[Rfam]
RNA sequence: UGCCUUUGUGUUGCCCAUUCAUUCAUUCCUCCAGUGAAUGUGGUGUCAGAAAAGGCAUACAUUAACUGUAGCUGUCAUGUUGAAGAGCAGGUUAUGUACCUUCUCUACAUUUCAGCUAAAACAAAA
Number, nucleotide and partner (000 for none) at each position: 001u000002g056003c055004c054005u053006u052007u051008g000009u048010g047011u000012u045013g044014c043015c042016c040017a039018u038019u037020c036021a035022u034023u033024c000025a000026u000027u000028c000029c000030u000031c000032c000033a023034g022035u021036g020037a019038a018039u017040g016041u000042g015043g014044u013045g012046u000047c010048a009049g000050a000051a007052a006053a005054g004055g003056c002057a000058u000059a000060c000061a000062u000063u000064a000065a000066c000067u000068g000069u118070a117071g116072c115073u114074g113075u000076c000077a000078u000079g000080u000081u109082g108083a000084a106085g105086a104087g000088c000089a000090g099091g000092u000093u000094a000095u000096g000097u000098a000099c090100c000101u000102u000103c000104u086105c085106u084107a000108c082109a081110u000111u000112u000113c074114a073115g072116c071117u070118a069119a000120a000121a000122c000123a000124a000125a000126a000
RNA: Small nucleolar RNA SNORA13